[Rfam]
RNA sequence: GCUUCUGUCUACUGGUAUACAUAUGGCAACUCGAUUGCUCUUCAUGCAGAAUCAACAUCAAGAGAUUUGGGAAGCAUAACUUUCUGGUACUUGGGCAGCUGGUGAUUGUUGUUCUCAGUGCCUUU
Numbered sequence: 001g002c003u004u005c006u007g008u009c010u011a012c013u014g015g016u017a018u019a020c021a022u023a024u025g026g027c028a029a030c031u032c033g034a035u036u037g038c039u040c041u042u043c044a045u046g047c048a049g050a051a052u053c054a055a056c057a058u059c060a061a062g063a064g065a066u067u068u069g070g071g072a073a074g075c076a077u078a079a080c081u082u083u084c085u086g087g088u089a090c091u092u093g094g095g096c097a098g099c100u101g102g103u104g105a106u107u108g109u110u111g112u113u114c115u116c117a118g119u120g121c122c123u124u125u
Base pairs, nucleotide, nucleotide: 001075002074003073004072005071006019007018008017010015020046021045022044023041025039026038027037028036029035047070049068050067051066052065053064093123094122095121096120098119099118100117101116102115104114105113107111

Shown here is a 125-nucleotide RNA sequence from Marmota marmota, a member of the family "U11 spliceosomal RNA". It is annotated as a spliceosomal small nuclear RNA. Its family is annotated with U11 snRNP, pre-mRNA 5'-splice site binding and mRNA 5'-splice site recognition in the Gene Ontology. Rfam 15.1 lists 2,595 matches to the family in 1,202 species. NCBI's taxonomy places the organism under Eukaryota, Sarcopterygii, Mammalia, Sciuromorpha, Marmota marmota.